[Rfam]
RNA sequence: CCAUCGAGUUUUCUAGUCUCCAAACUACUUUCUGUAUCACCUUCACAGGUUUUACCAAUCCCAGUCAAAAUGUCUCCCUGCACCUGCACCUGCUGCCAAGGCAACUGCUCCAGCUGCUCUUGCUCUUCUUGCAGCGUGAGUAUUC
Numbered sequence: 001c002c003a004u005c006g007a008g009u010u011u012u013c014u015a016g017u018c019u020c021c022a023a024a025c026u027a028c029u030u031u032c033u034g035u036a037u038c039a040c041c042u043u044c045a046c047a048g049g050u051u052u053u054a055c056c057a058a059u060c061c062c063a064g065u066c067a068a069a070a071u072g073u074c075u076c077c078c079u080g081c082a083c084c085u086g087c088a089c090c091u092g093c094u095g096c097c098a099a100g101g102c103a104a105c106u107g108c109u110c111c112a113g114c115u116g117c118u119c120u121u122g123c124u125c126u127u128c129u130u131g132c133a134g135c136g137u138g139a140g141u142a143u144u145c
Stems, first nucleotide, its partner, number of pairs: 079103003086096003107132002116123002
RNA: A. fumigatus sRNA Afu_254
Organism: Aspergillus ellipticus